[Rfam]
RNA sequence: AGCUUUGCGCAGUGGCAGUAUCGUAGCCAAUGAGGUUUAUCCGAGGCGUGAUUAUUGCUAAUUAAAAUGGGGACAGCAAUAAUAGCCCUGAUUAACAUAGGUUAAAUGUUUCAGGAAUUCUAAAACACUAUACUAUGUUAGU
Numbered sequence: 001a002g003c004u005u006u007g008c009g010c011a012g013u014g015g016c017a018g019u020a021u022c023g024u025a026g027c028c029a030a031u032g033a034g035g036u037u038u039a040u041c042c043g044a045g046g047c048g049u050g051a052u053u054a055u056u057g058c059u060a061a062u063u064a065a066a067a068u069g070g071g072g073a074c075a076g077c078a079a080u081a082a083u084a085g086c087c088c089u090g091a092u093u094a095a096c097a098u099a100g101g102u103u104a105a106a107u108g109u110u111u112c113a114g115g116a117a118u119u120c121u122a123a124a125a126c127a128c129u130a131u132a133c134u135a136u137g138u139u140a141g142u
Base pairs, nucleotide, nucleotide: 020052021051022050023049024048026047027046028045034042035041088114089113090112091110092105093104094103095102096101127142128141129140130139
RNA: U4 spliceosomal RNA
Organism: Neomonachus schauinslandi